Notes
The family of this 87-nucleotide sequence from Vulpes vulpes is "mir-8799 microRNA precursor family". The family's consensus secondary structure was predicted with RNAalifold.
[Rfam]
RNA sequence: UGGGGGAGGCCAGAUCCUGGGCUGUGUCCGGGCGCCCUGUGCUCCGGGGCCUGCGCUGUUGGAUUCGCUCCCGCCCUGCACCCCCCU
Numbered sequence: 001u002g003g004g005g006g007a008g009g010c011c012a013g014a015u016c017c018u019g020g021g022c023u024g025u026g027u028c029c030g031g032g033c034g035c036c037c038u039g040u041g042c043u044c045c046g047g048g049g050c051c052u053g054c055g056c057u058g059u060u061g062g063a064u065u066c067g068c069u070c071c072c073g074c075c076c077u078g079c080a081c082c083c084c085c086c087u
Base pairs, nucleotide, nucleotide: 002086003085004084005083006082009079010078013074017073019071020070021069024068025067026066027063028062029061031057032056033055034054035053039051041050042049043048